Rfam assigns this 105-nucleotide RNA from Plutella xylostella to the family "mir-8517 microRNA precursor family".
NCBI's taxonomy places the organism under Eukaryota, Eumetazoa, Panarthropoda, Lepidoptera, Plutella.
A search with the family's covariance model found it, with a score of 73 bits.

[Rfam]
RNA sequence: UUAUAGGACAUUUUAGCUAUUGAACUGUUUUGUUCCUCUCAGUCAAAGAACAACUUCUUCCUUGACAGAGAGGGACAAAACAGUUCUAUAUCUAAAACAUCCAAC
Numbered sequence: 001u002u003a004u005a006g007g008a009c010a011u012u013u014u015a016g017c018u019a020u021u022g023a024a025c026u027g028u029u030u031u032g033u034u035c036c037u038c039u040c041a042g043u044c045a046a047a048g049a050a051c052a053a054c055u056u057c058u059u060c061c062u063u064g065a066c067a068g069a070g071a072g073g074g075a076c077a078a079a080a081c082a083g084u085u086c087u088a089u090a091u092c093u094a095a096a097a098c099a100u101c102c103a104a105c
Base pairs, nucleotide, nucleotide: 004104006102011097012096013095014094015093016092018090019089020088022086023085024084025083026082027081028080029069030068031067032066033065034064049059050058052056